The family of this 87-nucleotide sequence from Escherichia coli is "Selenocysteine transfer RNA".
Rfam links the family to the GO term triplet codon-amino acid adaptor activity.
Pairs were carried over by alignment from the consensus structure, which is taken from published work.
RNA sequence: GAUCGUCGUCUCCGGUGAGGCGGCUGGACUUCAAAUCCAGUUGGGGCCGCCAGCGGUCCCGGGCAGGUUCGACUCCUGUGAUCGCCA
Numbered sequence: 001g002a003u004c005g006u007c008g009u010c011u012c013c014g015g016u017g018a019g020g021c022g023g024c025u026g027g028a029c030u031u032c033a034a035a036u037c038c039a040g041u042u043g044g045g046g047c048c049g050c051c052a053g054c055g056g057u058c059c060c061g062g063g064c065a066g067g068u069u070c071g072a073c074u075c076c077u078g079u080g081a082u083c084g085c086c087a
Stems, first nucleotide, its partner, number of pairs: 001083005007022006023041006043060005064078004